[Rfam]
RNA sequence: UCCAUCGUGAGGUGGAAUCAGAAGGAAGUCGGAUGGCAAAUUUCUGGUCUGACGAACAGAAAUCACAUGAGGCUAUAGUUAAGGAUAAGGUUGCGAAACAAACUAAAGUCCAAUAACUACUCGGAAUUAACUGUAGUAGAUGUGGCAGAUAGAUGGAGAGAAAGUGAUAUGU
Number, nucleotide and partner (000 for none) at each position: 001u016002c015003c014004a013005u012006c011007g000008u000009g000010a000011g006012g005013u004014g003015g002016a001017a000018u000019c000020a000021g000022a000023a000024g000025g000026a000027a000028g000029u000030c171031g170032g000033a000034u000035g000036g165037c164038a000039a000040a000041u159042u158043u157044c156045u155046g154047g150048u149049c148050u147051g146052a000053c000054g000055a000056a000057c000058a000059g000060a000061a000062a000063u145064c144065a143066c142067a141068u000069g000070a000071g000072g137073c136074u135075a000076u133077a132078g131079u130080u129081a128082a127083g111084g110085a109086u108087a000088a000089g104090g103091u102092u101093g000094c000095g000096a000097a000098a000099c000100a000101a092102a091103c090104u089105a000106a000107a000108g086109u085110c084111c083112a000113a000114u000115a000116a000117c000118u000119a000120c000121u000122c000123g000124g000125a000126a000127u082128u081129a080130a079131c078132u077133g076134u000135a074136g073137u072138a000139g000140a000141u067142g066143u065144g064145g063146c051147a050148g049149a048150u047151a000152g000153a000154u046155g045156g044157a043158g042159a041160g000161a000162a000163a000164g037165u036166g000167a000168u000169a000170u031171g030172u000
Group II catalytic intron D1-D4-3: a 172-nucleotide RNA sequence from Blautia sp. CAG:257. The pairing is the family consensus, mapped onto this sequence. It scores 141 bits against the family's covariance model. Rfam 15.1 lists 4,274 matches to the family in 1,585 species. Its family is annotated with Group II intron splicing in the Gene Ontology.